[Rfam]
RNA sequence: GACCUUGAAAAACGCCGCGUUUCACGCCAUAUACGGAAUGUCUCGCAAGGGACUAUGGACAUAAACGCGCUCGUAAUAAGCGGAUCGGACCCGGGGGCGGUACCCGGCGACUCCACCAAACAUCCGGUGUUGGCGGAUCAUGGGGUCGAAAUAGGAUCGACGGACGUCUAAAGGGGUUGCUUUGUCUCGGUGAGCUACCACCGAUAUCGGUGCAGAAAAGUACAAUUGCCAACAACAAUCGUGCUCCGGUUGCUCUGGCUGCGUAAGCAGUUCGAGGAAUCGAAAUCUAAGUCCUUGCGCCUAGCAGCGUAAGGCGGGGUUCGCAGGCACCUGGCAACAGAAGCCUGCACU
Number, nucleotide and partner (000 for none) at each position: 001g000002a000003c000004c000005u000006u000007g000008a000009a000010a000011a000012a000013c000014g000015c000016c000017g000018c000019g000020u000021u000022u000023c000024a000025c000026g000027c000028c000029a000030u000031a000032u000033a000034c000035g000036g000037a000038a000039u000040g053041u052042c051043u050044c049045g000046c000047a000048a000049g044050g043051g042052a041053c040054u000055a000056u000057g187058g186059a185060c184061a183062u000063a000064a000065a000066c000067g180068c179069g177070c176071u175072c174073g000074u000075a000076a000077u000078a000079a000080g000081c166082g165083g000084a000085u163086c162087g161088g000089a000090c000091c107092c106093g105094g104095g103096g000097g000098c000099g000100g000101u000102a000103c095104c094105c093106g092107g091108c148109g147110a146111c145112u144113c143114c142115a000116c000117c000118a000119a000120a000121c000122a000123u000124c000125c000126g000127g000128u000129g000130u000131u000132g000133g000134c000135g000136g000137a000138u000139c000140a000141u000142g114143g113144g112145g111146u110147c109148g108149a000150a000151a000152u000153a000154g000155g000156a000157u000158c000159g000160a000161c087162g086163g085164a000165c082166g081167u000168c000169u000170a000171a000172a000173g000174g072175g071176g070177u069178u000179g068180c067181u000182u000183u061184g060185u059186c058187u057188c203189g202190g201191u200192g000193a000194g213195c212196u000197a211198c210199c209200a191201c190202c189203g188204a000205u000206a000207u000208c000209g199210g198211u197212g195213c194214a000215g000216a000217a000218a000219a000220g000221u000222a000223c000224a000225a000226u000227u000228g000229c000230c000231a000232a000233c000234a000235a000236c000237a000238a000239u000240c000241g000242u000243g000244c000245u000246c000247c000248g000249g000250u000251u000252g000253c000254u000255c000256u000257g000258g000259c000260u000261g000262c000263g000264u000265a000266a000267g000268c000269a000270g000271u000272u000273c000274g000275a000276g000277g000278a000279a000280u000281c000282g000283a000284a000285a000286u000287c000288u000289a000290a000291g000292u000293c000294c000295u000296u000297g000298c000299g000300c000301c000302u000303a000304g000305c000306a000307g000308c000309g000310u000311a000312a000313g000314g000315c000316g000317g332318g331319g330320u329321u000322c000323g348324c347325a346326g345327g344328c343329a320330c319331c318332u317333g000334g000335c000336a000337a000338c000339a000340g000341a000342a000343g328344c327345c326346u325347g324348c323349a000350c000351u000
Rfam assigns this 351-nucleotide RNA sequence from Palleronia pontilimi to the family "Alphaproteobacteria transfer-messenger RNA". It scores 301 bits against the family's covariance model. The source organism's lineage runs through Bacteria, Pseudomonadati, Rhodobacterales, Roseobacteraceae and Palleronia. By type it is a non-coding RNA gene.